The record is a 57-nucleotide sequence from Acetivibrio cellulolyticus, which matches "Na+ riboswitch aptamer (DUF1646)" in Rfam. Its family is annotated with regulation of gene expression and sodium ion binding in the Gene Ontology. NCBI's taxonomy places the organism under Bacteria, Bacillati, Bacillota, Acetivibrionaceae, Acetivibrio cellulolyticus.
RNA sequence: GGUUGGGUGAAUUCUAUAUUCGCUUUCAAGAUGAUUGGACUUCCGGGGUGGGAAGCU
Number, nucleotide and partner (000 for none) at each position: 001g000002g000003u029004u028005g027006g024007g023008u022009g021010a020011a019012u000013u000014c000015u000016a000017u000018a000019u011020u010021c009022g008023c007024u006025u000026u000027c005028a004029a003030g000031a000032u000033g000034a000035u000036u000037g000038g057039a000040c055041u054042u053043c052044c051045g000046g000047g000048g000049u000050g000051g044052g043053a042054a041055g040056c000057u038